[Rfam]
RNA sequence: CCAGACGGUCGGACGGUCGCUGUCGGGCGAUAGCGAUAUCGCCCGAUGGAGGAAAGUCCGGGCUCCAUGGGAGAACGGUGCCGGCUAACGGCCGGCGAGGGCGACCUUAGGGAAAGUGCCACAGAAAACAGACCGCCCACCGUAUGCGUGUUCGCACGGGUGCCGUGGGUAAGGGUGAAACGGUGCGGUAAGAGCGCACCGCGCUUCCGGCAACGGCGGCGGCACGGCAAACCCCACCGGGAGCAAGACCGAAUAGGAACGACCGGACCACCCCGCGUGGUUCAGGGGGUCUCCCGCCCCGUCGUUCGGGUUGGUCGCGCGAGGUGCGUUGCAAGACGCAUCCCAGAGGAAUGACCGUCUCGCCUGUUUCGCAGGCGGACAGAACCCGGCUUACAGACCGUCUGGCAAG
Numbered sequence: 001c002c003a004g005a006c007g008g009u010c011g012g013a014c015g016g017u018c019g020c021u022g023u024c025g026g027g028c029g030a031u032a033g034c035g036a037u038a039u040c041g042c043c044c045g046a047u048g049g050a051g052g053a054a055a056g057u058c059c060g061g062g063c064u065c066c067a068u069g070g071g072a073g074a075a076c077g078g079u080g081c082c083g084g085c086u087a088a089c090g091g092c093c094g095g096c097g098a099g100g101g102c103g104a105c106c107u108u109a110g111g112g113a114a115a116g117u118g119c120c121a122c123a124g125a126a127a128a129c130a131g132a133c134c135g136c137c138c139a140c141c142g143u144a145u146g147c148g149u150g151u152u153c154g155c156a157c158g159g160g161u162g163c164c165g166u167g168g169g170u171a172a173g174g175g176u177g178a179a180a181c182g183g184u185g186c187g188g189u190a191a192g193a194g195c196g197c198a199c200c201g202c203g204c205u206u207c208c209g210g211c212a213a214c215g216g217c218g219g220c221g222g223c224a225c226g227g228c229a230a231a232c233c234c235c236a237c238c239g240g241g242a243g244c245a246a247g248a249c250c251g252a253a254u255a256g257g258a259a260c261g262a263c264c265g266g267a268c269c270a271c272c273c274c275g276c277g278u279g280g281u282u283c284a285g286g287g288g289g290u291c292u293c294c295c296g297c298c299c300c301g302u303c304g305u306u307c308g309g310g311u312u313g314g315u316c317g318c319g320c321g322a323g324g325u326g327c328g329u330u331g332c333a334a335g336a337c338g339c340a341u342c343c344c345a346g347a348g349g350a351a352u353g354a355c356c357g358u359c360u361c362g363c364c365u366g367u368u369u370c371g372c373a374g375g376c377g378g379a380c381a382g383a384a385c386c387c388g389g390c391u392u393a394c395a396g397a398c399c400g401u402c403u404g405g406c407a408a409g
Stems, first nucleotide, its partner, number of pairs: 001405010011394001012359007020049012054392003058389005063243004071295001073293002076239005081095005096110001097108004111234002116232002118228003133174002135170006142163004182200006201223001202221004207216003247316004257307006286300005323342008

A member of the RNA family "Bacterial RNase P class A" from Ameyamaea chiangmaiensis, 409 nucleotides long. Rfam classes the family as a ribozyme.